[Rfam]
RNA sequence: AUAAAGAAUAUAGUUUUCGCUCAUAUAAUCGCGGGGAUAUGGCCCGCAAGUUUCUACCAGAUUGCCGUUAACAAUCUGACUAUGAGUGGGUAAUGUAUUUGC
Numbered sequence: 001a002u003a004a005a006g007a008a009u010a011u012a013g014u015u016u017u018c019g020c021u022c023a024u025a026u027a028a029u030c031g032c033g034g035g036g037a038u039a040u041g042g043c044c045c046g047c048a049a050g051u052u053u054c055u056a057c058c059a060g061a062u063u064g065c066c067g068u069u070a071a072c073a074a075u076c077u078g079a080c081u082a083u084g085a086g087u088g089g090g091u092a093a094u095g096u097a098u099u100u101g102c
Base pairs, nucleotide, nucleotide: 018088019087020086021085022084023083024082025081029049031047032046033045034044035043058078059077060076061075062074063073064072
Rfam assigns this 102-nucleotide RNA sequence from Neobacillus cucumis to the family "Purine riboswitch aptamer". The match comes from Rfam's covariance-model search (92 bits). The organism belongs to Neobacillus, within Bacteria. About the family: Riboswitches are metabolite binding domains within certain messenger RNAs that serve as precision sensors for their corresponding targets. Allosteric rearrangement of mRNA structure is mediated by ligand binding, and this results in modulation of gene expression. A class of riboswitches that selectively recognises guanine and becomes saturated at concentrations as low as 5 nM. In Bacillus subtilis, this mRNA motif is located on at least five separate transcriptional units that together encode 17 genes that are mostly involved in purine transport and purine nucleotide biosynthesis. It has also been shown that some members of this family are specific for adenine instead. Hence this family are termed purine riboswitches.